[Rfam]
Shown here is a 192-nucleotide sequence from bacterium J10(2018), a member of the family "Bacteroidales-1 6S-Bacteroidales RNA suggested".
Bacteroidales-1 was first reported in a comparative genomics-based approach of genome and metagenome sequences from Weinberg et al. 2010 In a high-resolution transcriptome map study of Bacteroides thetaiotaomicron, Ryan et al. 2020 report this sRNA as 6S RNA homologue of Bacteroides, in the study they obtain evidence of small product RNAs (pRNAs) related to 6S function.
Pairs were carried over by alignment from the consensus structure, which is taken from published work.

RNA sequence: UACCACAUCAAAGUUGAUUGGGAAACUCAUCAAUUACUUAUGAAAUACCGAGACAAGCUUAGUCAACCGAUGGCGGGCCCCAAUCGUCCUUUUGGGCGAUGGCAUUUAUGCCCAAGGCGGAUUACAAAGGUCGGCGAGCGCUCAAAUCCUGUCAUUCGGAGUUUCAUCGCAUCCUUUGGUGUGGUCCUAUAA
Numbered sequence: 001u002a003c004c005a006c007a008u009c010a011a012a013g014u015u016g017a018u019u020g021g022g023a024a025a026c027u028c029a030u031c032a033a034u035u036a037c038u039u040a041u042g043a044a045a046u047a048c049c050g051a052g053a054c055a056a057g058c059u060u061a062g063u064c065a066a067c068c069g070a071u072g073g074c075g076g077g078c079c080c081c082a083a084u085c086g087u088c089c090u091u092u093u094g095g096g097c098g099a100u101g102g103c104a105u106u107u108a109u110g111c112c113c114a115a116g117g118c119g120g121a122u123u124a125c126a127a128a129g130g131u132c133g134g135c136g137a138g139c140g141c142u143c144a145a146a147u148c149c150u151g152u153c154a155u156u157c158g159g160a161g162u163u164u165c166a167u168c169g170c171a172u173c174c175u176u177u178g179g180u181g182u183g184g185u186c187c188u189a190u191a192a
Stems, first nucleotide, its partner, number of pairs: 057139003062135003066131003071126002078120002081117001087096003102111003
It scores 118 bits against the family's covariance model.